[Rfam]
RNA sequence: AGCUUUUAUUGGGUAUCAGCAGUUGUCUUUCAUUAGGAGGAAGAGUGAGGAAGGUACCAAAGGGUGUAGCCAACUUUUAUAAACUUUACAGGGUUUUGAGUGCUUGAACUUACUUUUUCAUUUUACUUCAUCCUCUAAGGAGCACAGUCACUUGGUGUGCCUACUUUACUUCUUUUAAGCGAAAGAACAGCGGACAGGCAGC
Numbered sequence: 001a002g003c004u005u006u007u008a009u010u011g012g013g014u015a016u017c018a019g020c021a022g023u024u025g026u027c028u029u030u031c032a033u034u035a036g037g038a039g040g041a042a043g044a045g046u047g048a049g050g051a052a053g054g055u056a057c058c059a060a061a062g063g064g065u066g067u068a069g070c071c072a073a074c075u076u077u078u079a080u081a082a083a084c085u086u087u088a089c090a091g092g093g094u095u096u097u098g099a100g101u102g103c104u105u106g107a108a109c110u111u112a113c114u115u116u117u118u119c120a121u122u123u124u125a126c127u128u129c130a131u132c133c134u135c136u137a138a139g140g141a142g143c144a145c146a147g148u149c150a151c152u153u154g155g156u157g158u159g160c161c162u163a164c165u166u167u168a169c170u171u172c173u174u175u176u177a178a179g180c181g182a183a184a185g186a187a188c189a190g191c192g193g194a195c196a197g198g199c200a201g202c
Stems, first nucleotide, its partner, number of pairs: 002020003007015003029142003033138005039132001040129004047122002050119001052118003072096002075093002098113001100111001102109001151198004158192003164185003167181001169179003
RNA: Connexin-43 internal ribosome entry site (IRES)
Organism: Acinonyx jubatus